The family of this 261-nucleotide RNA sequence from Parasphingorhabdus halotolerans is "Ruegeria trans44 sRNA". By type it is a small RNA. A reference for the family is Rivers et al. (2016), "Experimental Identification of Small Non-Coding RNAs in the Model Marine Bacterium Ruegeria pomeroyi DSS-3", Front Microbiol.
[Rfam]
RNA sequence: CAUCGCGAUGCUCUCUUAACGGAGAAAUCGUGAUGAGGAUACUUUCAAAGCGUCAGUUGAAGGAGCUAGUUUUAUACUCACCCCAGCACAUCGCACGACUGGAAAAGGCAGGCCUAUUCCCCAAGCGGGUACAGCUAGGCCCGAACAGAGUGGGAUGGGUUGAGGCCGAGGUGCUAGAUUGGCUCGCCGUCAAAUUGAAAAGCCGCGAAGAACCAGCCCGACACUCCUACUAAAGGAGCGGGUGAUCGGGUUUGCAAGCCC
Numbered sequence: 001c002a003u004c005g006c007g008a009u010g011c012u013c014u015c016u017u018a019a020c021g022g023a024g025a026a027a028u029c030g031u032g033a034u035g036a037g038g039a040u041a042c043u044u045u046c047a048a049a050g051c052g053u054c055a056g057u058u059g060a061a062g063g064a065g066c067u068a069g070u071u072u073u074a075u076a077c078u079c080a081c082c083c084c085a086g087c088a089c090a091u092c093g094c095a096c097g098a099c100u101g102g103a104a105a106a107g108g109c110a111g112g113c114c115u116a117u118u119c120c121c122c123a124a125g126c127g128g129g130u131a132c133a134g135c136u137a138g139g140c141c142c143g144a145a146c147a148g149a150g151u152g153g154g155a156u157g158g159g160u161u162g163a164g165g166c167c168g169a170g171g172u173g174c175u176a177g178a179u180u181g182g183c184u185c186g187c188c189g190u191c192a193a194a195u196u197g198a199a200a201a202g203c204c205g206c207g208a209a210g211a212a213c214c215a216g217c218c219c220g221a222c223a224c225u226c227c228u229a230c231u232a233a234a235g236g237a238g239c240g241g242g243u244g245a246u247c248g249g250g251u252u253u254g255c256a257a258g259c260c261c
Stems, first nucleotide, its partner, number of pairs: 001035009012025005053198006063185010075173004079168001081165002084162004089157004094152003099148003107141003111136003119129003202246001204244003218241003224238005249261002